[Rfam]
RNA sequence: AUCUCUUUCUCGUCCUUUUGGCUAAGAUUAAGUGUAGUAUCUGUUCUUAUCAUUUUAAUAUCUGAUAUGUGGACCAUGUGCUCACAAUGAUAUUAAAUUUAUUUUUUGUGGGGAGGGUCCACCACAGUAGCUUGCUACUGGGGCUCUCAGGUGUCGUCCUUGUGCUGCACUAUUGCAUGGACCUGGCGCACCCCUA
Dot-bracket structure: .......(((.(.((....)).).)))....................(((((..........))))).((((.(.....).))))...........................((((((((......((((....))))..))))))))..((((((.((.(((...........))).))...)))))).......

Rfam assigns this 196-nucleotide RNA sequence from Carex littledalei to the family "U2 spliceosomal RNA". NCBI's taxonomy places the organism under Eukaryota, Streptophyta, Tracheophyta, Cyperaceae, Carex subgen. Euthyceras. For this family Rfam cites "A conserved pseudouridine modification in eukaryotic U2 snRNA induces a change in branch-site architecture" (Newby and Greenbaum, RNA, 2001).